[Rfam]
RNA: FMN riboswitch aptamer (RFN element)
Organism: Kandleria vitulina
RNA sequence: AAUAUCUUCGGGGCAGGGUGAAAUUCCCUACCGGCGGUAAAGCCCGCGAGCAUUAUGCAUGAAUCGGUGAAAUUCCGAUGCCGACAGUACAGUCUGGAUGGAAGAAGAACAAG
Numbered sequence: 001a002a003u004a005u006c007u008u009c010g011g012g013g014c015a016g017g018g019u020g021a022a023a024u025u026c027c028c029u030a031c032c033g034g035c036g037g038u039a040a041a042g043c044c045c046g047c048g049a050g051c052a053u054u055a056u057g058c059a060u061g062a063a064u065c066g067g068u069g070a071a072a073u074u075c076c077g078a079u080g081c082c083g084a085c086a087g088u089a090c091a092g093u094c095u096g097g098a099u100g101g102a103a104g105a106a107g108a109a110c111a112a113g
Base pairs, nucleotide, nucleotide: 005108006107007106008105009104016028017027018026030093031092032083033082034047035046036045037044042081043080063079064078065077066076067075085096086095087094
Dot-bracket structure: ....(((((......(((.......))).[[((((((....[[))))...............(((((.......)))))]])).(((....]]))).......))))).....